S15-Flavobacteria ribosomal protein leader: a 66-nucleotide sequence from Winogradskyella sp. KYW1333.
On this family, see Eckert and Weinberg, BMC Microbiol 2020: "Discovery of 20 novel ribosomal leader candidates in bacteria and archaea".
The family's consensus secondary structure is taken from published work.
NCBI's taxonomy places the organism under Bacteria, Pseudomonadati, Flavobacteriia, Flavobacteriaceae, Winogradskyella.
RNA sequence: UAUAUUUGCGCCCUGAAAGAGAGACUUUCAUAGUACAUAACAAUCAUUUACAAUAAUAUUAGAAUG
Number, nucleotide and partner (000 for none) at each position: 001u000002a000003u000004a000005u000006u000007u000008g000009c000010g000011c000012c000013c000014u030015g029016a028017a027018a026019g025020a000021g000022a000023g000024a000025c019026u018027u017028u016029c015030a014031u000032a000033g000034u000035a000036c000037a000038u000039a000040a000041c000042a000043a000044u000045c000046a000047u000048u000049u000050a000051c000052a000053a000054u000055a000056a000057u000058a000059u000060u000061a000062g000063a000064a000065u000066g000